eL15-Euryarchaeota ribosomal protein leader: a 49-nucleotide RNA sequence from Candidatus Methanoperedens nitratireducens.
Pairs were carried over by alignment from the consensus structure, which is taken from published work.
The literature on the family includes a 2020 paper in BMC Microbiol by Eckert and Weinberg, "Discovery of 20 novel ribosomal leader candidates in bacteria and archaea".
The organism belongs to Candidatus Methanoperedens, within Archaea.
Rfam classes the family as a cis-regulatory leader.
[Rfam]
RNA sequence: GCGGGAGAAAAUCCCGCAGGAAUGUGGCCCAUAAGGGCUGAACCGUAAA
Numbered sequence: 001g002c003g004g005g006a007g008a009a010a011a012u013c014c015c016g017c018a019g020g021a022a023u024g025u026g027g028c029c030c031a032u033a034a035g036g037g038c039u040g041a042a043c044c045g046u047a048a049a
Stems, first nucleotide, its partner, number of pairs: 001017005019044002026039005